The record is a 57-nucleotide RNA from Gilvimarinus sp. DA14, which matches "Guanidine-II riboswitch aptamer (mini-ykkC)" in Rfam.
It scores 36 bits against the family's covariance model.
Rfam 15.1 lists 1,589 matches to the family in 1,229 species.
The organism belongs to Gilvimarinus, within Bacteria.

[Rfam]
RNA sequence: CCGCCGGGACGACCCGCCGGAUGCGGCCUUUGCCGACUACUUUAGGGGACGGCCCCU
Number, nucleotide and partner (000 for none) at each position: 001c020002c019003g018004c000005c016006g015007g014008g013009a000010c000011g000012a000013c008014c007015c006016g005017c000018c003019g002020g001021a000022u000023g000024c000025g000026g000027c000028c000029u000030u000031u000032g000033c000034c000035g000036a000037c000038u000039a000040c000041u000042u000043u000044a057045g056046g055047g054048g053049a000050c000051g000052g000053c048054c047055c046056c045057u044